[Rfam]
RNA sequence: CCCUUCUGCAUUAACAGAACUCUGCUAUAAUUGUGUGAUCCAGACUUUGUUUCAUGCAAUAAUGCUAGCAGAGUAUUGUGUGGAAGGAGAUCAUUUCCCACUGUACUGAAAAUGAGAUGUGGUCGAACCUCUUUCUUAAUGUUCGUUGGCCACUGUCUCAAGGUGCAUUGCCACACUU
Numbered sequence: 001c002c003c004u005u006c007u008g009c010a011u012u013a014a015c016a017g018a019a020c021u022c023u024g025c026u027a028u029a030a031u032u033g034u035g036u037g038a039u040c041c042a043g044a045c046u047u048u049g050u051u052u053c054a055u056g057c058a059a060u061a062a063u064g065c066u067a068g069c070a071g072a073g074u075a076u077u078g079u080g081u082g083g084a085a086g087g088a089g090a091u092c093a094u095u096u097c098c099c100a101c102u103g104u105a106c107u108g109a110a111a112a113u114g115a116g117a118u119g120u121g122g123u124c125g126a127a128c129c130u131c132u133u134u135c136u137u138a139a140u141g142u143u144c145g146u147u148g149g150c151c152a153c154u155g156u157c158u159c160a161a162g163g164u165g166c167a168u169u170g171c172c173a174c175a176c177u178u
Stems, first nucleotide, its partner, number of pairs: 020073002023070005030063004036054002041049003099170002102167004120149001122147001124145004
RNA: Small nucleolar RNA SNORA81